About this RNA
A member of the RNA family "mir-242_2 microRNA precursor family" from Branchiostoma belcheri, 78 nucleotides long.
RNA sequence: CCUCCCAAGUGUUGCGUAGGCGUUGUGCACACUGUCUGACACAACCGUGUGUACCUCUCCUGCCUAACAUUUGGACGG
Numbered sequence: 001c002c003u004c005c006c007a008a009g010u011g012u013u014g015c016g017u018a019g020g021c022g023u024u025g026u027g028c029a030c031a032c033u034g035u036c037u038g039a040c041a042c043a044a045c046c047g048u049g050u051g052u053a054c055c056u057c058u059c060c061u062g063c064c065u066a067a068c069a070u071u072u073g074g075a076c077g078g
Stems, first nucleotide, its partner, number of pairs: 005074003009070002013066002016063002019060002022057001025054008